[Rfam]
RNA sequence: CCCCCCGAAGCGGGUCCCAGCCCGGCCUCCCCGGAGGCUGCCGGCGGGGUAGAGUACUGAUCGGGGGUGCGGGAGCCGAAAGGCUCCGGCCCCCGGUCAAACUCCGAACCUGCCGGCGCCGCAGAAGGGGGGAGGCGGGGGCGGUGGGGUAAGCCUCCGCUCCGAGACGGGAAUAACCGAGACCGGGGUUAAGGCCCCCAAGUGCGGGCUUAGUGUCAAUCUCGAAGGGCGUCCUCCGCCCAAGACAGCGGGACCGUGGGCCUAACAGCAGCCAUCGGCUAAGCAACGCGUAACAGCGGACCCGCCGAGGCGGGGGGCCCCGAAGAUGUACAGGGACUAAGCCCGCCGCCGAUACCCCGGGCCUCCGGCCGUUGGCCGGAGUGCGGUAGGGGGGCGCGGCCGUGGGGCAGAAGCCGGGCCGUGAGGUCCGGUGGACCCGCGGCCGACGAAGAU
Numbered sequence: 001c002c003c004c005c006c007g008a009a010g011c012g013g014g015u016c017c018c019a020g021c022c023c024g025g026c027c028u029c030c031c032c033g034g035a036g037g038c039u040g041c042c043g044g045c046g047g048g049g050u051a052g053a054g055u056a057c058u059g060a061u062c063g064g065g066g067g068u069g070c071g072g073g074a075g076c077c078g079a080a081a082g083g084c085u086c087c088g089g090c091c092c093c094c095g096g097u098c099a100a101a102c103u104c105c106g107a108a109c110c111u112g113c114c115g116g117c118g119c120c121g122c123a124g125a126a127g128g129g130g131g132g133a134g135g136c137g138g139g140g141g142c143g144g145u146g147g148g149g150u151a152a153g154c155c156u157c158c159g160c161u162c163c164g165a166g167a168c169g170g171g172a173a174u175a176a177c178c179g180a181g182a183c184c185g186g187g188g189u190u191a192a193g194g195c196c197c198c199c200a201a202g203u204g205c206g207g208g209c210u211u212a213g214u215g216u217c218a219a220u221c222u223c224g225a226a227g228g229g230c231g232u233c234c235u236c237c238g239c240c241c242a243a244g245a246c247a248g249c250g251g252g253a254c255c256g257u258g259g260g261c262c263u264a265a266c267a268g269c270a271g272c273c274a275u276c277g278g279c280u281a282a283g284c285a286a287c288g289c290g291u292a293a294c295a296g297c298g299g300a301c302c303c304g305c306c307g308a309g310g311c312g313g314g315g316g317g318c319c320c321c322g323a324a325g326a327u328g329u330a331c332a333g334g335g336a337c338u339a340a341g342c343c344c345g346c347c348g349c350c351g352a353u354a355c356c357c358c359g360g361g362c363c364u365c366c367g368g369c370c371g372u373u374g375g376c377c378g379g380a381g382u383g384c385g386g387u388a389g390g391g392g393g394g395c396g397c398g399g400c401c402g403u404g405g406g407g408c409a410g411a412a413g414c415c416g417g418g419c420c421g422u423g424a425g426g427u428c429c430g431g432u433g434g435a436c437c438c439g440c441g442g443c444c445g446a447c448g449a450a451g452a453u
Stems, first nucleotide, its partner, number of pairs: 001394006011024005026134001027132006036120003040117008052105001053103002059098010072087006138163007146156002168179003183360007193350003202347001204346006227321003231318010248305005254278003259273003279283001284299001288297002361384002363381005395448001397445010413432008
A member of the RNA family "Archaeal large subunit ribosomal RNA" from Pyrobaculum arsenaticum, 453 nucleotides of a longer RNA.
On this family, see Yusupov et al., Science 2001: "Crystal structure of the ribosome at 5.5 A resolution".
It is one of the family's seed sequences.